Nucleotides: 088
Stems, first nucleotide, its partner, number of pairs: 034067002039062002041058007
Number, partner (000 for none) and nucleotide at each position: 001000u002000u003000u004000c005000a006000c007000g008000a009000a010000a011000a012000c013000a014000a015000c016000g017000a018000u019000a020000g021000c022000c023000c024000u025000a026000c027000c028000u029000c030000u031000c032000c033000a034067u035066c036000g037000u038000u039062c040061u041058u042057g043056c044055g045054g046053c047052u048000c049000c050000g051000u052047g053046g054045c055044c056043g057042c058041g059000c060000c061040a062039g063000u064000g065000a066035g067034a068000a069000u070000u071000c072000g073000u074000g075000u076000u077000u078000c079000c080000u081000u082000c083000c084000a085000g086000c087000a088000g
Record summary:
Rfam assigns this 88-nucleotide RNA from Cohnella cholangitidis to the family "BsrC". The source organism's lineage runs through Bacteria, Bacillati, Bacillota, Bacilli and Cohnella.